[Rfam]
RNA: Eukaryotic large subunit ribosomal RNA, nucleotides 3266 to 3658
RNA sequence: GAGGGACCGGUGUGAUGGUAAUGGAGCUUAGUACGAGAGGAACGGUUCGAUCGGAUACUUGGUAACGCGCUCGAUGGAGCCGUCGAUGGCGCGAGGCUACAUCCGUGGGGUAAUGGCUGACAGCCUCUCAAGCCAGAACCCUUGCCAGAGACACGGCCAGGCGAGAGGAACGCGGCCGGCCAAGACAAGCCUCUGCGCGAAGCGGAGGAAGAAGCCCUUAUGUACCCCUUAGAGGGCACAGAACUGACGCGCCCGAGCCUCAGAUCAUUCUGGGGCAAGACCUCCGCCAAGGACCCACUGUAGACGACCGUGCUAAAGAGGAACGGGGUGCUGGAAGCGAGAGAGUGCAAACGCGUGAUCCGUGCAGGCCUACCCCCGGUUCACUAGGUCCUC
Numbered sequence: 001g002a003g004g005g006a007c008c009g010g011u012g013u014g015a016u017g018g019u020a021a022u023g024g025a026g027c028u029u030a031g032u033a034c035g036a037g038a039g040g041a042a043c044g045g046u047u048c049g050a051u052c053g054g055a056u057a058c059u060u061g062g063u064a065a066c067g068c069g070c071u072c073g074a075u076g077g078a079g080c081c082g083u084c085g086a087u088g089g090c091g092c093g094a095g096g097c098u099a100c101a102u103c104c105g106u107g108g109g110g111u112a113a114u115g116g117c118u119g120a121c122a123g124c125c126u127c128u129c130a131a132g133c134c135a136g137a138a139c140c141c142u143u144g145c146c147a148g149a150g151a152c153a154c155g156g157c158c159a160g161g162c163g164a165g166a167g168g169a170a171c172g173c174g175g176c177c178g179g180c181c182a183a184g185a186c187a188a189g190c191c192u193c194u195g196c197g198c199g200a201a202g203c204g205g206a207g208g209a210a211g212a213a214g215c216c217c218u219u220a221u222g223u224a225c226c227c228c229u230u231a232g233a234g235g236g237c238a239c240a241g242a243a244c245u246g247a248c249g250c251g252c253c254c255g256a257g258c259c260u261c262a263g264a265u266c267a268u269u270c271u272g273g274g275g276c277a278a279g280a281c282c283u284c285c286g287c288c289a290a291g292g293a294c295c296c297a298c299u300g301u302a303g304a305c306g307a308c309c310g311u312g313c314u315a316a317a318g319a320g321g322a323a324c325g326g327g328g329u330g331c332u333g334g335a336a337g338c339g340a341g342a343g344a345g346u347g348c349a350a351a352c353g354c355g356u357g358a359u360c361c362g363u364g365c366a367g368g369c370c371u372a373c374c375c376c377c378g379g380u381u382c383a384c385u386a387g388g389u390c391c392u393c
Base pairs, nucleotide, nucleotide: 008156010154011153012152013151016147017146018145019144021051022050024048025047026046027045028044052105053104054103055102056101060099061098062097066093067092068091069090070089071086072085073084074083075082076081107142108141109140114135115134116133117132118131161287162286163285165284166283167282168281291391292390293389294388295387296312297311298310300308321382322381323380324379326376327375328374330369331368337363338362339361342359345356346355347354348353